The record is a 92-nucleotide RNA sequence from Paenibacillus donghaensis, which matches "c-di-GMP-I riboswitch aptamer" in Rfam. Lineage of the source: Bacteria > Bacillati > Bacilli > Paenibacillaceae > Paenibacillus.
RNA sequence: UUUAUUCAAAGGCAAACUACUUGAAAGAGUAGGACGCAAAGCAAUGGGCCUAAAGAUGCCAACAAGGCAUUCAUGGCUGCCAAGCCGCCAAG
Numbered sequence: 001u002u003u004a005u006u007c008a009a010a011g012g013c014a015a016a017c018u019a020c021u022u023g024a025a026a027g028a029g030u031a032g033g034a035c036g037c038a039a040a041g042c043a044a045u046g047g048g049c050c051u052a053a054a055g056a057u058g059c060c061a062a063c064a065a066g067g068c069a070u071u072c073a074u075g076g077c078u079g080c081c082a083a084g085c086c087g088c089c090a091a092g
Stems, first nucleotide, its partner, number of pairs: 012037002017032006041085002045082003048077003055071006